[Rfam]
RNA sequence: UAUAUUUUUACCUAGGGUUCCGCAGCUAUUCAUUUAGGCUGGCUGGUCCAAGAGGUAAUACACAGCAUCAGCUGUGGACACGGAGGGAUAAAAGCCCGGGAGGA
Numbered sequence: 001u002a003u004a005u006u007u008u009u010a011c012c013u014a015g016g017g018u019u020c021c022g023c024a025g026c027u028a029u030u031c032a033u034u035u036a037g038g039c040u041g042g043c044u045g046g047u048c049c050a051a052g053a054g055g056u057a058a059u060a061c062a063c064a065g066c067a068u069c070a071g072c073u074g075u076g077g078a079c080a081c082g083g084a085g086g087g088a089u090a091a092a093a094g095c096c097c098g099g100g101a102g103g104a
Stems, first nucleotide, its partner, number of pairs: 008058005015049002020046002022043001023041005061076006079099001081102001085097003
The family of this 104-nucleotide RNA sequence from Paenibacillus psychroresistens is "Guanidine-I riboswitch aptamer". For this family Rfam cites "Metabolism of Free Guanidine in Bacteria Is Regulated by a Widespread Riboswitch Class" (Nelson et al., Mol Cell, 2017). About the family: This family represents a conserved RNA structure found upstream of the ykkC and yxkD genes in Bacillus subtilis and related genes in other bacteria. Lineage of the source: Bacteria > Bacilli > Caryophanales > Paenibacillaceae > Paenibacillus.